[Rfam]
RNA sequence: CGACCGUCACAACGGCUUCCUGGCGUGACGGGGUCAUCUAAUGGAGCA
Numbered sequence: 001c002g003a004c005c006g007u008c009a010c011a012a013c014g015g016c017u018u019c020c021u022g023g024c025g026u027g028a029c030g031g032g033g034u035c036a037u038c039u040a041a042u043g044g045a046g047c048a
Stems, first nucleotide, its partner, number of pairs: 004031007013022002015047003019044002
Shown here is a 48-nucleotide RNA sequence from Paracoccus suum, a member of the family "SAM/SAH riboswitch aptamer". The match comes from Rfam's covariance-model search (59 bits). Its family is annotated with regulation of gene expression and S-adenosylmethionine metabolic process in the Gene Ontology.